Rfam assigns this 98-nucleotide RNA from Centaurea solstitialis to the family "Small nucleolar RNA Z107/R87". By type it is a C/D-box small nucleolar RNA. The match comes from Rfam's covariance-model search (76 bits). On this family, see Barneche et al., J Mol Biol 2001: "Identification of 66 box C/D snoRNAs in Arabidopsis thaliana: extensive gene duplications generated multiple isoforms predicting new ribosomal RNA 2'-O-methylation sites".
RNA sequence: GAUUGCUGUGAUGACUUUAUGAAAUUCAAGCUCAACAGACCGGAAUGCAGGAUUCUUAAUUGAGUUUUGCGUGUCGAUAACCCGCUUACUGAGCAAUC
Numbered sequence: 001g002a003u004u005g006c007u008g009u010g011a012u013g014a015c016u017u018u019a020u021g022a023a024a025u026u027c028a029a030g031c032u033c034a035a036c037a038g039a040c041c042g043g044a045a046u047g048c049a050g051g052a053u054u055c056u057u058a059a060u061u062g063a064g065u066u067u068u069g070c071g072u073g074u075c076g077a078u079a080a081c082c083c084g085c086u087u088a089c090u091g092a093g094c095a096a097u098c
Stems, first nucleotide, its partner, number of pairs: 001098006